[Rfam]
RNA sequence: CGCACUGCAUGGUAUCUGCAGGCAGCCGCUGCUCCGGUUGAUCUGUUCAUUAGUCAGUGCAAGAAUAACUCGGUAUCUGGCAUCGUUGGUCUCAUGCUCGUCAGUGCAUGCAGUCCUGGUAUAUCUGUCGAGACAAAU
Numbered sequence: 001c002g003c004a005c006u007g008c009a010u011g012g013u014a015u016c017u018g019c020a021g022g023c024a025g026c027c028g029c030u031g032c033u034c035c036g037g038u039u040g041a042u043c044u045g046u047u048c049a050u051u052a053g054u055c056a057g058u059g060c061a062a063g064a065a066u067a068a069c070u071c072g073g074u075a076u077c078u079g080g081c082a083u084c085g086u087u088g089g090u091c092u093c094a095u096g097c098u099c100g101u102c103a104g105u106g107c108a109u110g111c112a113g114u115c116c117u118g119g120u121a122u123a124u125c126u127g128u129c130g131a132g133a134c135a136a137a138u
Stems, first nucleotide, its partner, number of pairs: 002060006014054002018046005024039005064126001068122001070119004080107004
Small nucleolar RNA SNORA8: a 138-nucleotide RNA from Esox lucius. The match comes from Rfam's covariance-model search (54 bits). The source organism's lineage runs through Eukaryota, Gnathostomata, Euteleostomi, Euteleosteomorpha and Esox. The base pairs follow the family's consensus structure, which was predicted with RNAfold. Clan: SNORA8 clan. Rfam's curators write: ACA8 is a member of the H/ACA class of snoRNA that guide the sites of modification of uridines to pseudouridines.